The family of this 81-nucleotide sequence from Triticum aestivum is "Small nucleolar RNA SNORD18".
For this family Rfam cites "Two different snoRNAs are encoded in introns of amphibian and human L1 ribosomal protein genes" (Prislei et al., Nucleic Acids Res, 1993).
The organism belongs to Triticum, within Eukaryota.
Clan: SNORD18 clan.
Gene Ontology terms of the family: RNA processing and nucleolus.
[Rfam]
RNA sequence: GGGAAAUGAUGAAGAACAAUUGGUCCGUGUUUCUGAAAAUCACGUGAGGAUAUCCAAUGAAACACUCAAUCUUCUGAUUCC
Numbered sequence: 001g002g003g004a005a006a007u008g009a010u011g012a013a014g015a016a017c018a019a020u021u022g023g024u025c026c027g028u029g030u031u032u033c034u035g036a037a038a039a040u041c042a043c044g045u046g047a048g049g050a051u052a053u054c055c056a057a058u059g060a061a062a063c064a065c066u067c068a069a070u071c072u073u074c075u076g077a078u079u080c081c
Base pairs, nucleotide, nucleotide: 001081002080003079004078